[Rfam]
RNA sequence: CGAGCAGACCCGCCGAGUCGCAUACGCGAGCCGGGGACCCAGGGCAGUUGGGGUGAAUCCGCGGUCACGACCGUGGUAGGGCGAGCUUCCCGCCCGAAUCCGUCAGCUAACCCGGUAGGCGGCCAGGAAGGAGAC
Numbered sequence: 001c002g003a004g005c006a007g008a009c010c011c012g013c014c015g016a017g018u019c020g021c022a023u024a025c026g027c028g029a030g031c032c033g034g035g036g037a038c039c040c041a042g043g044g045c046a047g048u049u050g051g052g053g054u055g056a057a058u059c060c061g062c063g064g065u066c067a068c069g070a071c072c073g074u075g076g077u078a079g080g081g082c083g084a085g086c087u088u089c090c091c092g093c094c095c096g097a098a099u100c101c102g103u104c105a106g107c108u109a110a111c112c113c114g115g116u117a118g119g120c121g122g123c124c125a126g127g128a129a130g131g132a133g134a135c
Stems, first nucleotide, its partner, number of pairs: 011121004018029003030116006040050002051101003059076004079095004

The family of this 135-nucleotide RNA from Phytohabitans flavus is "c-di-AMP riboswitch aptamer (ydaO/yuaA leader)". The organism belongs to Phytohabitans, within Bacteria. The match comes from Rfam's covariance-model search (89 bits).